[Rfam]
RNA sequence: ACAACAUACUUUGGGGUCAUUGUAGAAGCGUGCUCGUCGCGACCCCUGCCAGCCCUUUUCAGGACUGCAAUUCUACA
Number, nucleotide and partner (000 for none) at each position: 001a000002c000003a000004a000005c000006a000007u000008a000009c000010u000011u000012u000013g046014g045015g044016g043017u042018c041019a000020u000021u077022g076023u075024a074025g073026a072027a071028g040029c039030g038031u000032g000033c000034u000035c000036g000037u000038c030039g029040c028041g018042a017043c016044c015045c014046c013047u000048g000049c000050c067051a066052g065053c000054c063055c062056u061057u000058u000059u000060c000061a056062g055063g054064a000065c052066u051067g050068c000069a000070a000071u027072u026073c025074u024075a023076c022077a021